[Rfam]
RNA sequence: AAAUGAAAAGGCAAACCCAUCGUAAGGUGGGGACGCAAAGUCAUGGGUCCUGAAGAAGGAUUGCCAGACCGCCAAAA
Numbered sequence: 001a002a003a004u005g006a007a008a009a010g011g012c013a014a015a016c017c018c019a020u021c022g023u024a025a026g027g028u029g030g031g032g033a034c035g036c037a038a039a040g041u042c043a044u045g046g047g048u049c050c051u052g053a054a055g056a057a058g059g060a061u062u063g064c065c066a067g068a069c070c071g072c073c074a075a076a077a
Stems, first nucleotide, its partner, number of pairs: 011036002016031006034063001040069003044066003047061003
The family of this 77-nucleotide RNA from Paenibacillus durus is "c-di-GMP-I-GGC riboswitch aptamer". For this family Rfam cites "Bioinformatic analysis of riboswitch structures uncovers variant classes with altered ligand specificity" (Weinberg et al., Proc Natl Acad Sci U S A, 2017). It scores 63 bits against the family's covariance model. The organism belongs to Paenibacillus, within Bacteria.